[Rfam]
RNA sequence: UUGACAUGCAAAUGAUAACGAUUACUAUUAACACAAGUCAUCGCGAGAUGGCUUGGAUAACGGAUUGUCGCGAGGCAAGCGGUUAUCUCCUCAUCAGGCUAAUCACGGAUUAGGCCCGCUCACUGAGCGGGCCAUUUUUUU
Numbered sequence: 001u002u003g004a005c006a007u008g009c010a011a012a013u014g015a016u017a018a019c020g021a022u023u024a025c026u027a028u029u030a031a032c033a034c035a036a037g038u039c040a041u042c043g044c045g046a047g048a049u050g051g052c053u054u055g056g057a058u059a060a061c062g063g064a065u066u067g068u069c070g071c072g073a074g075g076c077a078a079g080c081g082g083u084u085a086u087c088u089c090c091u092c093a094u095c096a097g098g099c100u101a102a103u104c105a106c107g108g109a110u111u112a113g114g115c116c117c118g119c120u121c122a123c124u125g126a127g128c129g130g131g132c133c134a135u136u137u138u139u140u141u
Base pairs, nucleotide, nucleotide: 034055035054036053037052038051039050040049041048042047061081062080065078066077067076068075069074089098090097091096113133114132115131116130117129118128119127120126
The record is a 141-nucleotide sequence from Halopseudomonas xinjiangensis, which matches "PrrF RNA" in Rfam. The match comes from Rfam's covariance-model search (101 bits). Gene Ontology term of the family: sRNA-mediated gene silencing. The source organism's lineage runs through Bacteria, Gammaproteobacteria, Pseudomonadales, Pseudomonadaceae and Halopseudomonas. About the family: PrrF RNA is a small RNA involved in iron homeostasis and is found exclusively in Pseudomonas species. The family has 18 seed sequences and 107 matches in Rfam 15.1. For this family Rfam cites "Identification of tandem duplicate regulatory small RNAs in Pseudomonas aeruginosa involved in iron homeostasis" (Wilderman et al., Proc Natl Acad Sci U S A, 2004).